RNA sequence: UUCGGACUGCUGUGUUGGUGUUUGCCCUGCCAAGUGUUCUGAUCUGACUCCCUUUUCGACUUGGGGGAGAUGUCCCGGAAGUGACGUAGACCGGCCCAGUAGCUGGAAACGAAGCUCCGCUUUUCUCCCCCUUCUGGUUUAUCCAGGUCGAACCUCAGGUCAUCACGGCACGGCGGUCCACCC
Numbered sequence: 001u002u003c004g005g006a007c008u009g010c011u012g013u014g015u016u017g018g019u020g021u022u023u024g025c026c027c028u029g030c031c032a033a034g035u036g037u038u039c040u041g042a043u044c045u046g047a048c049u050c051c052c053u054u055u056u057c058g059a060c061u062u063g064g065g066g067g068a069g070a071u072g073u074c075c076c077g078g079a080a081g082u083g084a085c086g087u088a089g090a091c092c093g094g095c096c097c098a099g100u101a102g103c104u105g106g107a108a109a110c111g112a113a114g115c116u117c118c119g120c121u122u123u124u125c126u127c128c129c130c131c132u133u134c135u136g137g138u139u140u141a142u143c144c145a146g147g148u149c150g151a152a153c154c155u156c157a158g159g160u161c162a163u164c165a166c167g168g169c170a171c172g173g174c175g176g177u178c179c180a181c182c183c
Base pairs, nucleotide, nucleotide: 004179005178006177007176008175009174010173011172012171013170014169015168018166019165036153037152038151040150041149042148043147044146045145063131064130065129067127068126069125070124072122076119077118078117079116086110087109091106092105093104094103095102
Rfam assigns this 183-nucleotide RNA from Synechococcus sp. RCC307 to the family "6S / SsrS RNA". The family's RNA type in Rfam is non-coding RNA gene. NCBI's taxonomy places the organism under Bacteria, Bacillati, Synechococcales, Synechococcaceae, Synechococcus. The family's consensus secondary structure is taken from published work.